[Rfam]
Nucleotides: 377
Base pairs, nucleotide, nucleotide: 001155002154003153004152005151006150007149008148011143012142013141014140016046018044019043020042021041047102048101049100050099051098055095056094057093062089063088064087066085067082068081069080070079071078072077104138105137106136111131112130113129114128115127161269162268163267164266165265167263273375274374275373276372277371278294299367300366301365302364303363305359306358307357309352310351316346317345318344319343321342324339325338326337327336
Number, partner (000 for none) and nucleotide at each position: 001155g002154u003153c004152g005151u006150c007149c008148u009000a010000a011143u012142a013141g014140u015000a016046a017000u018044a019043c020042c021041g022000g023000u024000u025000a026000g027000u028000a029000c030000g031000a032000g033000a034000g035000g036000a037000a038000c039000c040000g041021c042020g043019g044018u045000u046016u047102u048101a049100g050099a051098u052000a053000a054000u055095u056094a057093g058000u059000u060000u061000u062089u063088a064087u065000a066085g067082c068081u069080a070079u071078c072077c073000g074000a075000c076000c077072g078071g079070g080069u081068a082067g083000u084000a085066c086000c087064g088063u089062a090000a091000a092000g093057c094056u095055a096000c097000u098051a099050u100049c101048u102047a103000c104138u105137a106136g107000a108000u109000u110000a111131u112130a113129g114128c115127u116000a117000a118000a119000c120000g121000c122000c123000u124000c125000u126000a127115a128114g129113u130112u131111a132000g133000a134000a135000u136106c137105u138104a139000u140014a141013c142012u143011a144000g145000a146000a147000c148008g149007g150006g151005a152004c153003g154002a155001u156000c157000c158000u159000c160000u161269c162268u163267a164266g165265u166000a167263c168000g169000c170000u171000u172000u173000a174000g175000g176000c177000g178000g179000a180000u181000a182000a183000g184000a185000a186000u187000a188000g189000u190000a191000c192000u193000a194000c195000u196000a197000g198000u199000a200000c201000c202000u203000a204000g205000g206000a207000c208000c209000c210000c211000u212000u213000u214000a215000u216000c217000c218000c219000c220000u221000a222000u223000a224000a225000g226000a227000u228000a229000c230000g231000u232000a233000g234000g235000g236000g237000c238000g239000a240000c241000g242000g243000g244000c245000g246000u247000a248000u249000c250000g251000u252000a253000a254000u255000u256000u257000u258000a259000u260000u261000a262000c263167g264000c265165g266164c267163u268162a269161g270000g271000a272000u273375a274374a275373a276372u277371c278294c279000c280000u281000u282000a283000u284000a285000u286000a287000c288000g289000a290000c291000u292000u293000a294278g295000a296000c297000g298000u299367c300366c301365g302364a303363c304000c305359g306358g307357g308000u309352c310351g311000u312000a313000u314000a315000a316346g317345u318344a319343g320000u321342c322000g323000a324339g325338u326337a327336g328000c329000c330000u331000u332000a333000u334000u335000a336327u337326u338325a339324c340000g341000a342321g343319c344318u345317a346316c347000u348000a349000a350000g351310c352309g353000u354000a355000a356000g357307c358306c359305c360000g361000a362000c363303g364302u365301c366300g367299g368000c369000u370000c371277g372276a373275u374274u375273u376000a377000u
Eukaryotic large subunit ribosomal RNA: a 377-nucleotide part of an RNA from Zymoseptoria ardabiliae. Rfam's curators put it in the seed alignment. Lineage of the source: Eukaryota > Pezizomycotina > dothideomyceta > Dothideomycetidae > Zymoseptoria ardabiliae. Rfam links the family to the GO terms ribosome and structural constituent of ribosome.